RNA sequence: AAUGAUACUUCUGCAAGGCAAUGCAGCCCGCAUGAUGGCGGGAUAUGUAUGUUCCGGGUUGGAAAUAAUAUCCGUUACGGCAUAU
Numbered sequence: 001a002a003u004g005a006u007a008c009u010u011c012u013g014c015a016a017g018g019c020a021a022u023g024c025a026g027c028c029c030g031c032a033u034g035a036u037g038g039c040g041g042g043a044u045a046u047g048u049a050u051g052u053u054c055c056g057g058g059u060u061g062g063a064a065a066u067a068a069u070a071u072c073c074g075u076u077a078c079g080g081c082a083u084a085u
Stems, first nucleotide, its partner, number of pairs: 011026005027042005043085006051078002055074005
Background: A member of the RNA family "dinG RNA", 85 nucleotides long. It is one of the family's seed sequences. The base pairs follow the family's consensus structure, which is taken from published work.